[Rfam]
RNA sequence: UACGAUUACUGAGUUAUUGUGUUCGAAAGAGAGAGUUAUCCCAGAUAGCCUUUGACCGUUACGCUUCAUCUUGGUUUUUUCCUGUUAAAUAGUAGACUCCGGCCAAUAUAUGCCGAAAAGGCAAGUUUUUUUUGAUGUUAUAUAGGAAAAGUCAAAUGUCCGACAAAAUGAAAGGUCAAGUUAAGUGGUUCAACGAGUCUAAAGGCUUCGGUUUCAUCACUCCUGCUGAUGGUAGCAAAGACGUUUUCGUUCACUUCUCUGCCAUUCAGGGCGCUGGUUUCAAAACUCUGGCUGAAGGCCAGCAAGUUGAAUUCACCAUUGAAAACGGUGCAAAAGGCCCAGCAGCUGCUAACGUAACUGCAAUCUAAGCUUAAUUGCUUAACUGAUUUCUAAAGCCCGUCAUUUUAAUGACGGGCUUUUUC
Numbered sequence: 001u002a003c004g005a006u007u008a009c010u011g012a013g014u015u016a017u018u019g020u021g022u023u024c025g026a027a028a029g030a031g032a033g034a035g036u037u038a039u040c041c042c043a044g045a046u047a048g049c050c051u052u053u054g055a056c057c058g059u060u061a062c063g064c065u066u067c068a069u070c071u072u073g074g075u076u077u078u079u080u081c082c083u084g085u086u087a088a089a090u091a092g093u094a095g096a097c098u099c100c101g102g103c104c105a106a107u108a109u110a111u112g113c114c115g116a117a118a119a120g121g122c123a124a125g126u127u128u129u130u131u132u133u134g135a136u137g138u139u140a141u142a143u144a145g146g147a148a149a150a151g152u153c154a155a156a157u158g159u160c161c162g163a164c165a166a167a168a169u170g171a172a173a174g175g176u177c178a179a180g181u182u183a184a185g186u187g188g189u190u191c192a193a194c195g196a197g198u199c200u201a202a203a204g205g206c207u208u209c210g211g212u213u214u215c216a217u218c219a220c221u222c223c224u225g226c227u228g229a230u231g232g233u234a235g236c237a238a239a240g241a242c243g244u245u246u247u248c249g250u251u252c253a254c255u256u257c258u259c260u261g262c263c264a265u266u267c268a269g270g271g272c273g274c275u276g277g278u279u280u281c282a283a284a285a286c287u288c289u290g291g292c293u294g295a296a297g298g299c300c301a302g303c304a305a306g307u308u309g310a311a312u313u314c315a316c317c318a319u320u321g322a323a324a325a326c327g328g329u330g331c332a333a334a335a336g337g338c339c340c341a342g343c344a345g346c347u348g349c350u351a352a353c354g355u356a357a358c359u360g361c362a363a364u365c366u367a368a369g370c371u372u373a374a375u376u377g378c379u380u381a382a383c384u385g386a387u388u389u390c391u392a393a394a395g396c397c398c399g400u401c402a403u404u405u406u407a408a409u410g411a412c413g414g415g416c417u418u419u420u421u422c
Stems, first nucleotide, its partner, number of pairs: 004024002007021003030224002034221003044215002048213001049205004054199003057195003061189002067158003071155003080147006089107002092104001112122003160175002227321006240248002251309001253307004259302003262298002266291005273286001275284001327340002330338002342361004350357001364386002366381001368379003392419012

The record is a 422-nucleotide sequence from Providencia stuartii, which matches "cspA thermoregulator" in Rfam.
It scores 255 bits against the family's covariance model.
For this family Rfam cites "The cspA mRNA is a thermosensor that modulates translation of the cold-shock protein CspA" (Giuliodori et al., Mol Cell, 2010).
Lineage of the source: Bacteria > Pseudomonadati > Gammaproteobacteria > Morganellaceae > Providencia.
The base pairs follow the family's consensus structure, which is taken from published work.
The family has 15 seed sequences and 2,094 matches in Rfam 15.1.